[Rfam]
The family of this 98-nucleotide sequence from Lentilactobacillus curieae is "TPP riboswitch aptamer (THI element)". Taxonomically the source falls in Lentilactobacillus (Bacteria, Bacilli, Lactobacillales, Lactobacillaceae). Vitamin B(1) in its active form thiamin pyrophosphate (TPP) is an essential coenzyme that is synthesised by coupling of pyrimidine and thiazole moieties in bacteria. Gene Ontology term of the family: thiamine pyrophosphate binding. A search with the family's covariance model found it, with a score of 65 bits.
RNA sequence: GAAUGACAUUAGGGGUGCCCUUGGGCUGAGACAACGAAAGUUGGACCCUCGAACUUGAUCUGGUUAGCGCCAGCGGAAGAAAAUGCCGAUUUCUUUUU
Numbered sequence: 001g002a003a004u005g006a007c008a009u010u011a012g013g014g015g016u017g018c019c020c021u022u023g024g025g026c027u028g029a030g031a032c033a034a035c036g037a038a039a040g041u042u043g044g045a046c047c048c049u050c051g052a053a054c055u056u057g058a059u060c061u062g063g064u065u066a067g068c069g070c071c072a073g074c075g076g077a078a079g080a081a082a083a084u085g086c087c088g089a090u091u092u093c094u095u096u097u098u
Base pairs, nucleotide, nucleotide: 007085008084009083010082011049012048013047014046016043017026018025019024033042034041035040054079055078056077060073061072062071063070